[Rfam]
RNA sequence: CCCGCAUCAAGAGCGGUGGAGGGAACUGGCCCAGCGAAGCCGCGGCAACCGGCGGGGGGCCCUUACCCCCGUGAGGUGCCAAUUCCAGCAGGUCUCCCCGAGGGGGGCCUGAAAGAUGUGGG
Numbered sequence: 001c002c003c004g005c006a007u008c009a010a011g012a013g014c015g016g017u018g019g020a021g022g023g024a025a026c027u028g029g030c031c032c033a034g035c036g037a038a039g040c041c042g043c044g045g046c047a048a049c050c051g052g053c054g055g056g057g058g059g060c061c062c063u064u065a066c067c068c069c070c071g072u073g074a075g076g077u078g079c080c081a082a083u084u085c086c087a088g089c090a091g092g093u094c095u096c097c098c099c100g101a102g103g104g105g106g107g108c109c110u111g112a113a114a115g116a117u118g119u120g121g122g
Stems, first nucleotide, its partner, number of pairs: 001122008013043005021032003026088004044080004049076002052072007084114001089111009

Shown here is a 122-nucleotide sequence from Rubrobacter xylanophilus, a member of the family "SAM riboswitch aptamer (S box leader)". The sequence is in the family's curated seed alignment.